[Rfam]
RNA sequence: AUACAUUCUUAAACCCUCUUGGUAGCUUCGCUCUAAAUGCUUCCAAGAUAUGAGUGAAUGCUGUAGAAAUUGCAGAGGAGUCCAAAGGACUACACUUCCCCUGUGGCUCAGUCUUAUUUCAUACCUGUGACAUCU
Numbered sequence: 001a002u003a004c005a006u007u008c009u010u011a012a013a014c015c016c017u018c019u020u021g022g023u024a025g026c027u028u029c030g031c032u033c034u035a036a037a038u039g040c041u042u043c044c045a046a047g048a049u050a051u052g053a054g055u056g057a058a059u060g061c062u063g064u065a066g067a068a069a070u071u072g073c074a075g076a077g078g079a080g081u082c083c084a085a086a087g088g089a090c091u092a093c094a095c096u097u098c099c100c101c102u103g104u105g106g107c108u109c110a111g112u113c114u115u116a117u118u119u120c121a122u123a124c125c126u127g128u129g130a131c132a133u134c135u
Base pairs, nucleotide, nucleotide: 004060005059006058008054009053010052011051017048018047019046020045021044022043024041025040026039065135066134067133070130071129072128073127074126075125086115087114088113089112090111091110095106098103
RNA: Small nucleolar RNA SNORA14